RNA sequence: GGUCACGAGAACCAGCGGAAAGCCCCGGCUAGCUGGUCGGCAACCCUCCGUCGCGGUGGGGUGCUCCGGGUGACGACCUGGCCGCCGGCCGACCGGUCGCGGCAAGCGCGAUAC
Numbered sequence: 001g002g003u004c005a006c007g008a009g010a011a012c013c014a015g016c017g018g019a020a021a022g023c024c025c026c027g028g029c030u031a032g033c034u035g036g037u038c039g040g041c042a043a044c045c046c047u048c049c050g051u052c053g054c055g056g057u058g059g060g061g062u063g064c065u066c067c068g069g070g071u072g073a074c075g076a077c078c079u080g081g082c083c084g085c086c087g088g089c090c091g092a093c094c095g096g097u098c099g100c101g102g103c104a105a106g107c108g109c110g111a112u113a114c
Stems, first nucleotide, its partner, number of pairs: 001078004009038001011037006021030002039065003044061003048056002081103004086099005
Shown here is a 114-nucleotide RNA sequence from Gordonia hirsuta, a member of the family "SAM (S-adenosyl methionine) riboswitch aptamer".
The source organism's lineage runs through Bacteria, Bacillati, Actinomycetota, Actinomycetes and Gordonia hirsuta.
Pairs were carried over by alignment from the consensus structure, which is taken from published work.
Its Rfam clan is "SAM clan".
A search with the family's covariance model found it, with a score of 105 bits.
Rfam describes the family as follows. SAM-IV is a mRNA element that regulates gene expression via direct sensing of S-adenosylmethionine (SAM or AdoMet).